[Rfam]
RNA: Small nucleolar RNA SNORD26
Organism: Myripristis murdjan
RNA sequence: CUACAGUGAUGAUCCCUGAACUCUCUCUUACUGAAUCAGCCUUUGAAGAAACCUCUUUACCAGAUUCUGAGUAGC
Numbered sequence: 001c002u003a004c005a006g007u008g009a010u011g012a013u014c015c016c017u018g019a020a021c022u023c024u025c026u027c028u029u030a031c032u033g034a035a036u037c038a039g040c041c042u043u044u045g046a047a048g049a050a051a052c053c054u055c056u057u058u059a060c061c062a063g064a065u066u067c068u069g070a071g072u073a074g075c
Stems, first nucleotide, its partner, number of pairs: 001074004